[Rfam]
RNA sequence: GGAGUGUCUGGACCUCCGGAGUCGCCUUGCGGGAGGAGGCUUCAAACCACCUACCGGGGCCUUGGCUAAAGACCGUGGUCUUGAACGGUGUAGGAAAAGGCGCGGCUGAGAUCGUGUCAGGU
Numbered sequence: 001g002g003a004g005u006g007u008c009u010g011g012a013c014c015u016c017c018g019g020a021g022u023c024g025c026c027u028u029g030c031g032g033g034a035g036g037a038g039g040c041u042u043c044a045a046a047c048c049a050c051c052u053a054c055c056g057g058g059g060c061c062u063u064g065g066c067u068a069a070a071g072a073c074c075g076u077g078g079u080c081u082u083g084a085a086c087g088g089u090g091u092a093g094g095a096a097a098a099g100g101c102g103c104g105g106c107u108g109a110g111a112u113c114g115u116g117u118c119a120g121g122u
Base pairs, nucleotide, nucleotide: 001017002016003015004014018043019042020041021040022039023038025036026035027034028033048121050094051093052092053091054090055088056082057081059079060078061077063075064074065073099118100117101116102115103114104113
Dot-bracket structure: ((((.........))))((((((.((((....)))).))))))....(.((((((((.(((.(((.......))).))).)).....).)))))....((((((........))))))..).
Notes:
Shown here is a 122-nucleotide sequence from Saccharothrix sp. ALI-22-I, a member of the family "Group II catalytic intron D1-D4-2". Lineage of the source: Bacteria > Actinomycetota > Pseudonocardiales > Pseudonocardiaceae > Saccharothrix. Rfam 15.1 lists 1,231 matches to the family in 625 species. Group II introns are found in rRNA, tRNA and mRNA of organelles in fungi, plants and protists, and also in mRNA in bacteria. The base pairs follow the family's consensus structure. A search with the family's covariance model found it, with a score of 86 bits.